[Rfam]
RNA sequence: UGGUGACCUGAGACUUCCUGGCUGUCACUCUGUCCCACCCCUCCUGGCCUGCGGGACACAGCCCAGUAAAGUCUGUCAGGUCCUGACCC
Numbered sequence: 001u002g003g004u005g006a007c008c009u010g011a012g013a014c015u016u017c018c019u020g021g022c023u024g025u026c027a028c029u030c031u032g033u034c035c036c037a038c039c040c041c042u043c044c045u046g047g048c049c050u051g052c053g054g055g056a057c058a059c060a061g062c063c064c065a066g067u068a069a070a071g072u073c074u075g076u077c078a079g080g081u082c083c084u085g086a087c088c089c
Stems, first nucleotide, its partner, number of pairs: 002088003005082005011074006021067004028061002032057003038054002041051001